RNA sequence: GAGCUAUGACCGCUGAAUCCGCUGCAACCGUGGCGGAGCGGGGGACCCGAUAAUCGGGGUGAAUCCAGCAGGUGGCCUCAGCGUCAUGCCACUGGCUGCCGUUGCCAUGCGGCGGCAGGCACAGUGCUAGCGGCACGGAGCUGGUAGGGGUAGCCUCGGCCCCGAACCCGUCAGCUAACCCCGUAAGCGUCUGCGAGGAAUUAC
Numbered sequence: 001g002a003g004c005u006a007u008g009a010c011c012g013c014u015g016a017a018u019c020c021g022c023u024g025c026a027a028c029c030g031u032g033g034c035g036g037a038g039c040g041g042g043g044g045a046c047c048c049g050a051u052a053a054u055c056g057g058g059g060u061g062a063a064u065c066c067a068g069c070a071g072g073u074g075g076c077c078u079c080a081g082c083g084u085c086a087u088g089c090c091a092c093u094g095g096c097u098g099c100c101g102u103u104g105c106c107a108u109g110c111g112g113c114g115g116c117a118g119g120c121a122c123a124g125u126g127c128u129a130g131c132g133g134c135a136c137g138g139a140g141c142u143g144g145u146a147g148g149g150g151u152a153g154c155c156u157c158g159g160c161c162c163c164g165a166a167c168c169c170g171u172c173a174g175c176u177a178a179c180c181c182c183g184u185a186a187g188c189g190u191c192u193g194c195g196a197g198g199a200a201u202u203a204c
Stems, first nucleotide, its partner, number of pairs: 011189004018037008038184006048056002057169003065144004147163004
Description
The record is a 204-nucleotide sequence from bacterium HR36, which matches "c-di-AMP riboswitch aptamer (ydaO/yuaA leader)" in Rfam.